[Rfam]
RNA sequence: UCGGACGGCCGGGCGGCCGCGGGCCGCGGCCUUGGGGUCGCUGCUCGAGGAAAGUCCGGGCUCCACGGAGACAGGGCGCCGGGUAACGCCCGGCCGGUCCGCCCUUCGGGGCGGGCCGAGGGAAAGCGCCACAGAGAUCGAACCGCCCCGGCUCGCCGGGGCAAGGGUGAAAAGGUGCGGUAAGAGCGCACCGGCGGCUCAGCAAUGAGCCGCGCAUGGCAAGCCCCGCCCGGAGCAAGACCGCGUAGGGACCGCGCGCCGAAAGGCAGGGGCGUCUCCGCCCCGAGCGGUCCGGGUUGGUCGCUAGAGGCCGCGCGCAAGCGCGCGCCCCAGAGGAAUGGCCGCCCCCUCGCGAGAGGGACAGAACCCGGCUUACAGGCCGUCCGACGCU
Numbered sequence: 001u002c003g004g005a006c007g008g009c010c011g012g013g014c015g016g017c018c019g020c021g022g023g024c025c026g027c028g029g030c031c032u033u034g035g036g037g038u039c040g041c042u043g044c045u046c047g048a049g050g051a052a053a054g055u056c057c058g059g060g061c062u063c064c065a066c067g068g069a070g071a072c073a074g075g076g077c078g079c080c081g082g083g084u085a086a087c088g089c090c091c092g093g094c095c096g097g098u099c100c101g102c103c104c105u106u107c108g109g110g111g112c113g114g115g116c117c118g119a120g121g122g123a124a125a126g127c128g129c130c131a132c133a134g135a136g137a138u139c140g141a142a143c144c145g146c147c148c149c150g151g152c153u154c155g156c157c158g159g160g161g162c163a164a165g166g167g168u169g170a171a172a173a174g175g176u177g178c179g180g181u182a183a184g185a186g187c188g189c190a191c192c193g194g195c196g197g198c199u200c201a202g203c204a205a206u207g208a209g210c211c212g213c214g215c216a217u218g219g220c221a222a223g224c225c226c227c228g229c230c231c232g233g234a235g236c237a238a239g240a241c242c243g244c245g246u247a248g249g250g251a252c253c254g255c256g257c258g259c260c261g262a263a264a265g266g267c268a269g270g271g272g273c274g275u276c277u278c279c280g281c282c283c284c285g286a287g288c289g290g291u292c293c294g295g296g297u298u299g300g301u302c303g304c305u306a307g308a309g310g311c312c313g314c315g316c317g318c319a320a321g322c323g324c325g326c327g328c329c330c331c332a333g334a335g336g337a338a339u340g341g342c343c344g345c346c347c348c349c350u351c352g353c354g355a356g357a358g359g360g361a362c363a364g365a366a367c368c369c370g371g372c373u374u375a376c377a378g379g380c381c382g383u384c385c386g387a388c389g390c391u
Base pairs, nucleotide, nucleotide: 001387002386003385004384005383006382007381008380009379010378011376012346013345014344015343016342017341018340020047021046022045023044024043026041027040028039029038030037052374053373054372056371057370058369059368060367061235062234063233064232070277074231075230076229077228078227079093080092081091082090083089094120095118096117097116098115099114100113101112102111103110104109121226122225126224127223128220129219130218143166144165145162146161147160148159149158150157151156174192175191176190177189178188179187193215194213195212196211197210198209199208200207201206239302240301241300242299249293250292251291252290253289254288269284270283271282272281273280309329310328311327312325313324314323315322316321